This 88-nucleotide sequence from Spinacia oleracea belongs to the Rfam family "Small nucleolar RNA Z102/R77". The family has 9 seed sequences and 1,346 matches in Rfam 15.1. Its family is annotated with nucleolus and RNA processing in the Gene Ontology. It scores 71 bits against the family's covariance model.
RNA sequence: UUAUGAAUGAUGAUUGAACUAUUUUGUUCCCUAUUGGUUUGAUUCGCCGAUAUGAUGGCAACAAUGUAUUAGCUAUACCUGAUCCUAU
Numbered sequence: 001u002u003a004u005g006a007a008u009g010a011u012g013a014u015u016g017a018a019c020u021a022u023u024u025u026g027u028u029c030c031c032u033a034u035u036g037g038u039u040u041g042a043u044u045c046g047c048c049g050a051u052a053u054g055a056u057g058g059c060a061a062c063a064a065u066g067u068a069u070u071a072g073c074u075a076u077a078c079c080u081g082a083u084c085c086u087a088u
Base pairs, nucleotide, nucleotide: 002087003086005084041062046059047058048057
Dot-bracket structure: .((.(...................................(....(((........)))..).....................).)).
On this family, see Chen et al., Nucleic Acids Res 2003: "The high diversity of snoRNAs in plants: identification and comparative study of 120 snoRNA genes from Oryza sativa".